[Rfam]
RNA sequence: AAGAUUGAAGAUGAGGAACUCAUAUCCUACAUCUUGACGGGCUUGGAUGAAGCCUUUGAUCCCGUGGUGUCAGCCGUGGCGGCGCGUGCUGAUCCCAUCUCGGUGGGAGAGCUGUUUACGCAGCUCGUUAGCUUCGAAC
Number, nucleotide and partner (000 for none) at each position: 001a000002a000003g000004a000005u137006u136007g135008a134009a000010g000011a000012u000013g000014a000015g000016g000017a000018a000019c000020u000021c000022a000023u000024a000025u000026c000027c000028u000029a000030c000031a000032u000033c000034u000035u000036g000037a000038c000039g000040g000041g000042c000043u000044u000045g000046g000047a000048u000049g000050a000051a000052g000053c000054c000055u000056u000057u000058g000059a000060u000061c000062c000063c000064g000065u000066g000067g000068u000069g000070u000071c000072a000073g000074c000075c000076g000077u000078g000079g000080c000081g000082g000083c000084g000085c000086g000087u000088g000089c107090u106091g000092a104093u103094c000095c000096c000097a000098u000099c000100u000101c000102g000103g093104u092105g000106g090107g089108a000109g000110a000111g000112c000113u000114g000115u000116u000117u000118a000119c000120g000121c000122a000123g000124c000125u000126c000127g000128u000129u000130a000131g000132c000133u000134u008135c007136g006137a005138a000139c000

The record is a 139-nucleotide RNA sequence from Sorghum bicolor, which matches "Small nucleolar RNA Z247" in Rfam. NCBI's taxonomy places the organism under Eukaryota, Viridiplantae, Panicoideae, Andropogonodae, Sorghum. For this family Rfam cites "The high diversity of snoRNAs in plants: identification and comparative study of 120 snoRNA genes from Oryza sativa" (Chen et al., Nucleic Acids Res, 2003).